[Rfam]
This 154-nucleotide RNA from Thraustotheca clavata belongs to the Rfam family "U12 minor spliceosomal RNA". Rfam classes the family as a spliceosomal small nuclear RNA. The family is grouped with related families in Rfam's "U2 clan". Gene Ontology terms of the family: pre-mRNA branch point binding, U12 snRNP and mRNA branch site recognition. The organism belongs to Thraustotheca, within Eukaryota. Rfam 15.1 lists 2,106 matches to the family in 1,170 species.
RNA sequence: UUGGCUUAAACUCAAUGAGUAAGGAAACUAACGCCCUACCUGACAAGUAGGGUCCCAAAGACCUAGAGUCUUUGGUAAUUUCUGUGGGAAACAUGGAACGGUUAAGGGGUCGGACCCUCUACUUUGGGGUCCACCCCCUAGCCGGUCCCCCUCC
Numbered sequence: 001u002u003g004g005c006u007u008a009a010a011c012u013c014a015a016u017g018a019g020u021a022a023g024g025a026a027a028c029u030a031a032c033g034c035c036c037u038a039c040c041u042g043a044c045a046a047g048u049a050g051g052g053u054c055c056c057a058a059a060g061a062c063c064u065a066g067a068g069u070c071u072u073u074g075g076u077a078a079u080u081u082c083u084g085u086g087g088g089a090a091a092c093a094u095g096g097a098a099c100g101g102u103u104a105a106g107g108g109g110u111c112g113g114a115c116c117c118u119c120u121a122c123u124u125u126g127g128g129g130u131c132c133a134c135c136c137c138c139u140a141g142c143c144g145g146u147c148c149c150c151c152u153c154c
Stems, first nucleotide, its partner, number of pairs: 005023004033053007057073005087154003095149002098146002101143001103140002106137005114130005